[Rfam]
RNA sequence: CUCCUCGAAAGCUAUUGAGGUAGCGCCUCGUGUAUCACUGUUGGGGGUAGAGCACUGUUUCGGCUAGGGGGCACACAAGUGUUUACCAAACCGAUGCAAACUCCGAAUACCAACAAGUGCAAUCACGGGAGACACACGGCGGGUGCUAACGUCCGUCGUGGAAAGGGAAACAACCCAGACCGCCAGCUAAGGUCCCAAAAUCAUGUCUAAGUGGUAAACGAUGUGGAAAGGCACAAACAGCCAGGAGGUUGGCUUAGAAGCAGCCACCCUUUAAAGAAAGCGUAAUAGCUCACUGGUCGAGUCGGUCUGCGCGGAAGAUAUAACGGGGCUCAAGGCAUGUACCGAAGCUGCGGAUGCGUAUUUAUACGCAUGGUAGAGGAGCGUUCUGUAAGUCUGUGAAGGUGAAUCGUAAGGUUUGCUGGAGAUAUCAGAAGUGCGAAU
Number, nucleotide and partner (000 for none) at each position: 001c381002u380003c379004c378005u377006c376007g000008a000009a000010a000011g024012c023013u022014a021015u020016u000017g000018a000019g000020g015021u014022a013023g012024c011025g000026c131027c129028u128029c127030g126031u125032g124033u000034a000035u122036c119037a118038c117039u115040g114041u113042u112043g111044g110045g000046g000047g000048u000049a000050g104051a102052g101053c000054a000055c000056u098057g097058u096059u000060u094061c093062g092063g091064c000065u000066a000067g087068g086069g084070g083071g082072c081073a080074c000075a000076c000077a000078a000079g000080u073081g072082u071083u070084u069085a000086c068087c067088a000089a000090a000091c063092c062093g061094a060095u000096g058097c057098a056099a000100a000101c052102u051103c000104c050105g000106a000107a000108u000109a000110c044111c043112a042113a041114c040115a039116a000117g038118u037119g036120c000121a000122a035123u000124c032125a031126c030127g029128g028129g027130a000131g026132a000133c000134a000135c160136a159137c158138g157139g156140c155141g154142g153143g152144u151145g000146c000147u000148a000149a000150c000151g144152u143153c142154c141155g140156u139157c138158g137159u136160g135161g000162a000163a000164a000165g176166g175167g174168a000169a000170a000171c000172a000173a000174c167175c166176c165177a000178g000179a000180c353181c352182g351183c350184c000185a349186g348187c347188u000189a000190a000191g343192g342193u341194c000195c000196c000197a000198a000199a000200a340201u000202c339203a338204u337205g336206u335207c334208u000209a000210a000211g000212u000213g000214g000215u000216a000217a000218a000219c313220g312221a000222u000223g310224u309225g308226g307227a306228a000229a000230g303231g302232c301233a000234c000235a000236a000237a000238c000239a000240g297241c296242c295243a294244g293245g000246a270247g269248g268249u000250u000251g265252g264253c263254u000255u000256a000257g000258a000259a000260g000261c000262a000263g253264c252265c251266a000267c000268c248269c247270u246271u275272u000273a000274a000275a271276g291277a000278a000279a000280g289281c288282g000283u000284a000285a000286u000287a000288g281289c280290u000291c276292a000293c244294u243295g242296g241297u240298c000299g000300a000301g232302u231303c230304g000305g000306u227307c226308u225309g224310c223311g000312c220313g219314g000315a000316a000317g000318a000319u000320a000321u000322a000323a000324c000325g000326g000327g000328g000329c000330u000331c000332a000333a000334g207335g206336c205337a204338u203339g202340u200341a193342c192343c191344g000345a000346a000347g187348c186349u185350g183351c182352g181353g180354a371355u370356g369357c368358g367359u366360a365361u000362u000363u000364a000365u360366a359367c358368g357369c356370a355371u354372g000373g000374u000375a000376g006377a005378g004379g003380a002381g001382c436383g000384u433385u432386c431387u430388g429389u000390a000391a000392g426393u425394c424395u000396g000397u000398g000399a000400a000401g420402g419403u418404g417405a416406a415407u414408c413409g000410u000411a000412a000413g408414g407415u406416u405417u404418g403419c402420u401421g000422g000423a000424g394425a393426u392427a000428u000429c388430a387431g386432a385433a384434g000435u000436g382437c000438g000439a000440a000441u000
Bacterial large subunit ribosomal RNA: a 441-nucleotide part of an RNA from Oceanococcus atlanticus. NCBI's taxonomy places the organism under Bacteria, Pseudomonadota, Gammaproteobacteria, Chromatiales, Oceanococcus. Pairs were carried over by alignment from the consensus structure, which is taken from published work.